[Rfam]
Nucleotides: 176
Base pairs, nucleotide, nucleotide: 001176002175004173006171007170008169012165013164014163016161017160018159019158020157021156022155024153025152026151027150029148030147031146032145033144034143035142036141037140038139040137041136042135044133045132078105079104081102082101083100084099085098086097087096
Number, partner (000 for none) and nucleotide at each position: 001176a002175a003000a004173c005000c006171g007170c008169c009000c010000c011000c012165u013164a014163a015000a016161u017160u018159u019158u020157g021156c022155a023000a024153c025152u026151g027150u028000a029148g030147u031146a032145g033144u034143u035142u036141u037140g038139g039000a040137c041136c042135c043000c044133a045132a046000g047000g048000c049000c050000a051000a052000u053000u054000u055000u056000a057000a058000a059000u060000a061000a062000a063000a064000a065000a066000u067000a068000a069000a070000a071000a072000a073000a074000u075000a076000a077000c078105a079104u080000g081102u082101g083100g084099c085098a086097c087096c088000u089000c090000a091000c092000u093000u094000a095000g096087g097086g098085u099084g100083c101082c102081a103000c104079a105078u106000c107000a108000g109000c110000g111000u112000a113000g114000a115000c116000c117000a118000a119000u120000u121000c122000a123000a124000a125000a126000u127000u128000g129000g130000c131000c132045u133044u134000u135042g136041g137040g138000g139038c140037c141036a142035a143034a144033a145032c146031u147030a148029c149000c150027a151026c152025a153024g154000g155022u156021g157020c158019a159018a160017a161016a162000c163014u164013u165012a166000g167000g168000g169008g170007g171006c172000a173004g174000u175002u176001u